[Rfam]
Overview
Bacterial RNase P class A: a 337-nucleotide sequence from Cardiobacterium valvarum. Gene Ontology terms of the family: tRNA processing, dimeric ribonuclease P complex and ribonuclease P activity.
RNA sequence: UGAGUUCGCCAGGCAAUCGCUGUGCUCCGGUGCAGAGGAAAGUCCGGGCUCCACAGGGCAGGGUGCCGGGUAACACCCGGGCGGCGUGAGCCGACGGAAAGUGCCACAGAAAAGAUACCGCCUGCGUUGCAGGUAAGGGUGAAAUGGUGCGGUAAGAGCGCACCGCAAGGCCGGUAACGGGCUUGGCAGGGUAAACCCCACCCGGAGCAAGACCAAAUAGGGAAUCCAUGCGGCGGCCCGCCGUGAUUCCGGGUAGGUUGCUACAGGUAUCCGGUAACGGGUAUCGCAGAGGAAUGAUUGCCCACGACAGAACCCGGCUUAUCGGCGAACUCUUUUU
Numbered sequence: 001u002g003a004g005u006u007c008g009c010c011a012g013g014c015a016a017u018c019g020c021u022g023u024g025c026u027c028c029g030g031u032g033c034a035g036a037g038g039a040a041a042g043u044c045c046g047g048g049c050u051c052c053a054c055a056g057g058g059c060a061g062g063g064u065g066c067c068g069g070g071u072a073a074c075a076c077c078c079g080g081g082c083g084g085c086g087u088g089a090g091c092c093g094a095c096g097g098a099a100a101g102u103g104c105c106a107c108a109g110a111a112a113a114g115a116u117a118c119c120g121c122c123u124g125c126g127u128u129g130c131a132g133g134u135a136a137g138g139g140u141g142a143a144a145u146g147g148u149g150c151g152g153u154a155a156g157a158g159c160g161c162a163c164c165g166c167a168a169g170g171c172c173g174g175u176a177a178c179g180g181g182c183u184u185g186g187c188a189g190g191g192u193a194a195a196c197c198c199c200a201c202c203c204g205g206a207g208c209a210a211g212a213c214c215a216a217a218u219a220g221g222g223a224a225u226c227c228a229u230g231c232g233g234c235g236g237c238c239c240g241c242c243g244u245g246a247u248u249c250c251g252g253g254u255a256g257g258u259u260g261c262u263a264c265a266g267g268u269a270u271c272c273g274g275u276a277a278c279g280g281g282u283a284u285c286g287c288a289g290a291g292g293a294a295u296g297a298u299u300g301c302c303c304a305c306g307a308c309a310g311a312a313c314c315c316g317g318c319u320u321a322u323c324g325g326c327g328a329a330c331u332c333u334u335u336u337u
Base pairs, nucleotide, nucleotide: 002332003331004330005329006328007327008326009325010324011322012302013301014300015299016298017297018296020035021034022033023032024031025030040320041319042318044317045316046315047314048313049207050206051205052204056239057238058237059236061203062202063201064200065199066080067079068078069077070076081095082093083092084091085090096198097197101196102195103192104191105190118138119137120134121133122132123131124130125129146164147163148162149161150160151159165187166185167184168183169182171180172179173178211259212258213257214256221250222249223248224247225246226245230244231243232242233241234240266285267284268283269282270281271280272279273278
The family's consensus secondary structure is taken from published work. It is annotated as a ribozyme.